[Rfam]
RNA: Small nucleolar RNA Z103
Organism: Dendrobium nobile
RNA sequence: GUGGAUAUGAUGAUCCUUUCCCCACAUGAACGACUAAGAUUAUAAAGUGCAAAUUUCUUAUAUUUUUCCUCUCUGGAAAAUCAAGCCAGAGGUUCUGAUCCAC
Numbered sequence: 001g002u003g004g005a006u007a008u009g010a011u012g013a014u015c016c017u018u019u020c021c022c023c024a025c026a027u028g029a030a031c032g033a034c035u036a037a038g039a040u041u042a043u044a045a046a047g048u049g050c051a052a053a054u055u056u057c058u059u060a061u062a063u064u065u066u067u068c069c070u071c072u073c074u075g076g077a078a079a080a081u082c083a084a085g086c087c088a089g090a091g092g093u094u095c096u097g098a099u100c101c102a103c
Stems, first nucleotide, its partner, number of pairs: 001103005